[Rfam]
RNA: Alphaproteobacterial sRNA BjrC1505
Organism: Oharaeibacter diazotrophicus
RNA sequence: UCUUCGCCUUUACCGGAUGUUAACCACGACGGGCCAUUCUAUGGUCGUCCAGUCUUCUGGAUCUUCGAGUGGCUCCUGUCACUCUUUUUGACGCCUCCCUGUUAACUUCGCAGAGCCGCGCCAUGCGCGGCUCUUUUUUC
Numbered sequence: 001u002c003u004u005c006g007c008c009u010u011u012a013c014c015g016g017a018u019g020u021u022a023a024c025c026a027c028g029a030c031g032g033g034c035c036a037u038u039c040u041a042u043g044g045u046c047g048u049c050c051a052g053u054c055u056u057c058u059g060g061a062u063c064u065u066c067g068a069g070u071g072g073c074u075c076c077u078g079u080c081a082c083u084c085u086u087u088u089u090g091a092c093g094c095c096u097c098c099c100u101g102u103u104a105a106c107u108u109c110g111c112a113g114a115g116c117c118g119c120g121c122c123a124u125g126c127g128c129g130g131c132u133c134u135u136u137u138u139u140c
Stems, first nucleotide, its partner, number of pairs: 001044002004041001005015002016038002021036001024033002048061004067084005090103004112134010
Dot-bracket structure: ((.(((.......))((...(..((......))..)))..).))...((((......)))).....(((((........))))).....((((......))))........((((((((((...))))))))))......